[Rfam]
RNA sequence: AGCCAAUGAUGACAAACUAAAUAACUUUUCUGACACCUCGUAUGAGAGCUGGACCACAGCUCCUGAUUCUAACUUUGGUCUGAGGCUC
Numbered sequence: 001a002g003c004c005a006a007u008g009a010u011g012a013c014a015a016a017c018u019a020a021a022u023a024a025c026u027u028u029u030c031u032g033a034c035a036c037c038u039c040g041u042a043u044g045a046g047a048g049c050u051g052g053a054c055c056a057c058a059g060c061u062c063c064u065g066a067u068u069c070u071a072a073c074u075u076u077g078g079u080c081u082g083a084g085g086c087u088c
Base pairs, nucleotide, nucleotide: 001087002086003085004084048060049059050058051057

Shown here is an 88-nucleotide RNA sequence from Mola mola, a member of the family "Small nucleolar RNA SNORD60". A reference for the family is Galardi et al. (2002), "Purified box C/D snoRNPs are able to reproduce site-specific 2'-O-methylation of target RNA in vitro", Mol Cell Biol. The match comes from Rfam's covariance-model search (65 bits). The family's consensus secondary structure was predicted with PFOLD. It is annotated as a C/D-box small nucleolar RNA. The organism belongs to Mola, within Eukaryota. Its family is annotated with nucleolus and RNA processing in the Gene Ontology.